Shown here is a 148-nucleotide sequence from Trema orientale, a member of the family "mir-393 microRNA precursor family". Pairs were carried over by alignment from the consensus structure. Rfam 15.1 lists 1,052 matches to the family in 221 species.

RNA sequence: GGUGGAAACUUCCAAAGGGAUCGCAUUGAUCUAAUUAUAUUCGACACUUUGAUGAAAACCAUGAUCAUCAAAUCAGUGAUAACAUGAUCUUUUACUAUUAAUUUUAGUUCAAGUUAUUAGAUCAUGCAAUCCCUUGGGAAUUUUCCAU
Numbered sequence: 001g002g003u004g005g006a007a008a009c010u011u012c013c014a015a016a017g018g019g020a021u022c023g024c025a026u027u028g029a030u031c032u033a034a035u036u037a038u039a040u041u042c043g044a045c046a047c048u049u050u051g052a053u054g055a056a057a058a059c060c061a062u063g064a065u066c067a068u069c070a071a072a073u074c075a076g077u078g079a080u081a082a083c084a085u086g087a088u089c090u091u092u093u094a095c096u097a098u099u100a101a102u103u104u105u106a107g108u109u110c111a112a113g114u115u116a117u118u119a120g121a122u123c124a125u126g127c128a129a130u131c132c133c134u135u136g137g138g139a140a141u142u143u144u145c146c147a148u
Stems, first nucleotide, its partner, number of pairs: 002148005008142001010140004015135007023127004028123005036116001